RNA sequence: UUAAAAACUUUAGCGCCAGGCUGAUAUAAGUCAGCUGACGAGGUGAAGGGUUAUCGAGGUGAUUUCGGCGGGUGCCCUUCCGGACCGCACAAUACGUUAGCUUCAUUACAAAAAGGGAGGCGACUCCUGAACAAAAGGUGGAGCAGUGCAUAAA
Numbered sequence: 001u002u003a004a005a006a007a008c009u010u011u012a013g014c015g016c017c018a019g020g021c022u023g024a025u026a027u028a029a030g031u032c033a034g035c036u037g038a039c040g041a042g043g044u045g046a047a048g049g050g051u052u053a054u055c056g057a058g059g060u061g062a063u064u065u066c067g068g069c070g071g072g073u074g075c076c077c078u079u080c081c082g083g084a085c086c087g088c089a090c091a092a093u094a095c096g097u098u099a100g101c102u103u104c105a106u107u108a109c110a111a112a113a114a115g116g117g118a119g120g121c122g123a124c125u126c127c128u129g130a131a132c133a134a135a136a137g138g139u140g141g142a143g144c145a146g147u148g149c150a151u152a153a154a
Base pairs, nucleotide, nucleotide: 020035021034022033023032024031025030045080046079047078048077049076054068055067056066057065081096082095084093100144101143102142103141104140105139106138115128116127117126118125119124

glmS glucosamine-6-phosphate activated ribozyme aptamer: a 154-nucleotide RNA sequence from Eubacterium ruminantium.